[Rfam]
RNA sequence: UUACGUGACGAAGCGCGCGCCAAAGUGGACAAUAAAGCCUAAGCUUCGAGUAAGUCGCCAUGAGACGCCGGUUUAGCCGGCGUUUUUUA
Numbered sequence: 001u002u003a004c005g006u007g008a009c010g011a012a013g014c015g016c017g018c019g020c021c022a023a024a025g026u027g028g029a030c031a032a033u034a035a036a037g038c039c040u041a042a043g044c045u046u047c048g049a050g051u052a053a054g055u056c057g058c059c060a061u062g063a064g065a066c067g068c069c070g071g072u073u074u075a076g077c078c079g080g081c082g083u084u085u086u087u088u089a
Stems, first nucleotide, its partner, number of pairs: 015059001016057002019039001021037001064084008
RNA: sroD RNA